[Rfam]
RNA: MIR7502 microRNA precursor family
Organism: Gossypium australe
RNA sequence: AGCUAAAAAUUCUAUCUAUUUUUAUUGUUAAAAAUUAGUCCUUGUAUGUCAUCAUGAGGUACACGUGGCAUGUCACUUGUAACUAUCUGGUUACUCCAUCACUCACACAAGUUUUUAACAAUAAAAAUGGAUGAAAUUUUUUAACA
Number, nucleotide and partner (000 for none) at each position: 001a000002g145003c000004u143005a142006a141007a140008a138009a137010u136011u135012c000013u133014a132015u131016c130017u000018a128019u127020u126021u125022u124023u123024a122025u121026u120027g000028u118029u117030a116031a115032a114033a113034a000035u000036u000037a000038g000039u000040c000041c000042u000043u000044g000045u000046a000047u000048g000049u000050c000051a000052u000053c000054a000055u000056g000057a000058g000059g000060u000061a000062c000063a000064c000065g000066u000067g000068g000069c000070a000071u000072g000073u000074c000075a000076c000077u000078u000079g000080u000081a000082a000083c000084u000085a000086u000087c000088u000089g000090g000091u000092u000093a000094c000095u000096c000097c000098a000099u000100c000101a000102c000103u000104c000105a000106c000107a000108c000109a000110a000111g000112u000113u033114u032115u031116u030117a029118a028119c000120a026121a025122u024123a023124a022125a021126a020127a019128u018129g000130g016131a015132u014133g013134a000135a011136a010137u009138u008139u000140u007141u006142u005143a004144a000145c002146a000